Shown here is a 173-nucleotide RNA from Fructilactobacillus florum, a member of the family "Lysine riboswitch aptamer".
Pairs were carried over by alignment from the consensus structure, which is taken from published work.

RNA sequence: AAAUCAAAUAGAGGUCGCAGGUAAUAAGAGUAGUUAGUGGAGCUGCCAUUCAGCUGAGAAACUAACCAAAGGGUUAGCUGCCGAAGUGCUAAGGAAUGGGCCUUAGUUAACUGGGACAUGACUUAAGAGGUCAUGGACUGUCGGGAUACAUGUCUCGGGGAGCUAUGAACAAA
Numbered sequence: 001a002a003a004u005c006a007a008a009u010a011g012a013g014g015u016c017g018c019a020g021g022u023a024a025u026a027a028g029a030g031u032a033g034u035u036a037g038u039g040g041a042g043c044u045g046c047c048a049u050u051c052a053g054c055u056g057a058g059a060a061a062c063u064a065a066c067c068a069a070a071g072g073g074u075u076a077g078c079u080g081c082c083g084a085a086g087u088g089c090u091a092a093g094g095a096a097u098g099g100g101c102c103u104u105a106g107u108u109a110a111c112u113g114g115g116a117c118a119u120g121a122c123u124u125a126a127g128a129g130g131u132c133a134u135g136g137a138c139u140g141u142c143g144g145g146a147u148a149c150a151u152g153u154c155u156c157g158g159g160g161a162g163c164u165a166u167g168a169a170c171a172a173a
Stems, first nucleotide, its partner, number of pairs: 008166004017081004022076004033066006085112003088107007113139002117135007141158007